[Rfam]
RNA sequence: CGAGUUUGUAGGCCAUAGUAGAAGCGCUCAUGGCGCAGCCAGUCAGAUUCCAAAUUAAAUCUGCAAAUUCUGCU
Numbered sequence: 001c002g003a004g005u006u007u008g009u010a011g012g013c014c015a016u017a018g019u020a021g022a023a024g025c026g027c028u029c030a031u032g033g034c035g036c037a038g039c040c041a042g043u044c045a046g047a048u049u050c051c052a053a054a055u056u057a058a059a060u061c062u063g064c065a066a067a068u069u070c071u072g073c074u
Stems, first nucleotide, its partner, number of pairs: 011040003017074007024036003044063006
Dot-bracket structure: ..........[[[...((((((((((.......))).]]]...((((((........))))))....)))))))